c-di-AMP riboswitch aptamer (ydaO/yuaA leader): a 179-nucleotide RNA sequence from Arthrobacter sp. Bz4. Its family is annotated with regulation of gene expression and cyclic-di-AMP binding in the Gene Ontology. The match comes from Rfam's covariance-model search (56 bits).

RNA sequence: UUUUACCGAACCCAGCCAAAGGCCUUGGUCCUUUAGAUAGGAAGGCUGGGGCGGGGAAACCAUAGGUGGGUUCUUUAGGAACCCUUGGGGUGAAGCCGGGCGGGGCGUUUGUCUUCGUGCGGCCGGGUGUCUCCCAUCCGAAUCCGACAGCUCACCUCGUAGGUAUAGGGAGAGAUUAU
Dot-bracket structure: ...((((...(((((((..........................)))))))((((((....((.......................))(((.....(((.....................)))..((((.......))))...))).........)))))).))))..............
Numbered sequence: 001u002u003u004u005a006c007c008g009a010a011c012c013c014a015g016c017c018a019a020a021g022g023c024c025u026u027g028g029u030c031c032u033u034u035a036g037a038u039a040g041g042a043a044g045g046c047u048g049g050g051g052c053g054g055g056g057a058a059a060c061c062a063u064a065g066g067u068g069g070g071u072u073c074u075u076u077a078g079g080a081a082c083c084c085u086u087g088g089g090g091u092g093a094a095g096c097c098g099g100g101c102g103g104g105g106c107g108u109u110u111g112u113c114u115u116c117g118u119g120c121g122g123c124c125g126g127g128u129g130u131c132u133c134c135c136a137u138c139c140g141a142a143u144c145c146g147a148c149a150g151c152u153c154a155c156c157u158c159g160u161a162g163g164u165a166u167a168g169g170g171a172g173a174g175a176u177u178a179u
Stems, first nucleotide, its partner, number of pairs: 004165004011050007051160006061087002088145003096122003125139004
Notes
The organism belongs to Arthrobacter, within Bacteria.